Shown here is a 136-nucleotide RNA sequence from Nothoprocta ornata, a member of the family "Small nucleolar RNA SNORA29". Pairs were carried over by alignment from the consensus structure, which was predicted with PFOLD. Rfam links the family to the GO terms RNA processing and nucleolus.
RNA sequence: AUUCCCAUUAUACUACCACUUUUUCGUUUUCUAGGUUAAGUGGCUAUGCUUGUGGGAUAGAGAAAAACUUGCCACGGUCUGAAGGAAAAGGUUCAUUGUGUCUUUUUCCUAUAUGAAGUUGGCAGAACAUCAUUUA
Numbered sequence: 001a002u003u004c005c006c007a008u009u010a011u012a013c014u015a016c017c018a019c020u021u022u023u024u025c026g027u028u029u030u031c032u033a034g035g036u037u038a039a040g041u042g043g044c045u046a047u048g049c050u051u052g053u054g055g056g057a058u059a060g061a062g063a064a065a066a067a068c069u070u071g072c073c074a075c076g077g078u079c080u081g082a083a084g085g086a087a088a089a090g091g092u093u094c095a096u097u098g099u100g101u102c103u104u105u106u107u108c109c110u111a112u113a114u115g116a117a118g119u120u121g122g123c124a125g126a127a128c129a130u131c132a133u134u135u136a
Base pairs, nucleotide, nucleotide: 004056005055006054007053016043017042018041019040071123072122073121074120089110090109091108

It scores 116 bits against the family's covariance model. The source organism's lineage runs through Eukaryota, Metazoa, Teleostomi, Archelosauria and Nothoprocta. Rfam 15.1 lists 960 matches to the family in 621 species. From the family's description: ACA29 is a member of the H/ACA class of snoRNA that guide the sites of modification of uridines to pseudouridines.